[Rfam]
RNA sequence: CCCUUCUUUACCAAAAGCGCCAUGCCAAAAUCAGCAGGUCUGAGCUUUUACCGGUUUAGUCCUGCUGGUCAUGCUAGUAUGGUACAUCUCAAAGAAGGGAGAGCAAAAGCCGCAGCCUCGGAAAUGAGACCAGGAGGGACCUCUUUCUUAAUGUCCCGUGUCCUGUGUCUCAAGAUUCUGCGCUACAUGU
Numbered sequence: 001c002c003c004u005u006c007u008u009u010a011c012c013a014a015a016a017g018c019g020c021c022a023u024g025c026c027a028a029a030a031u032c033a034g035c036a037g038g039u040c041u042g043a044g045c046u047u048u049u050a051c052c053g054g055u056u057u058a059g060u061c062c063u064g065c066u067g068g069u070c071a072u073g074c075u076a077g078u079a080u081g082g083u084a085c086a087u088c089u090c091a092a093a094g095a096a097g098g099g100a101g102a103g104c105a106a107a108a109g110c111c112g113c114a115g116c117c118u119c120g121g122a123a124a125u126g127a128g129a130c131c132a133g134g135a136g137g138g139a140c141c142u143c144u145u146u147c148u149u150a151a152u153g154u155c156c157c158g159u160g161u162c163c164u165g166u167g168u169c170u171c172a173a174g175a176u177u178c179u180g181c182g183c184u185a186c187a188u189g190u
Base pairs, nucleotide, nucleotide: 020082021081023079024078025077027075030072031071033069037062038061040059041058042057043056044055045054046053108184109183111182112181113180114179115178132161134159136157137156138155139154
Description
The family of this 190-nucleotide RNA from Pangasianodon hypophthalmus is "Small nucleolar RNA SNORA81". By type it is an H/ACA-box small nucleolar RNA.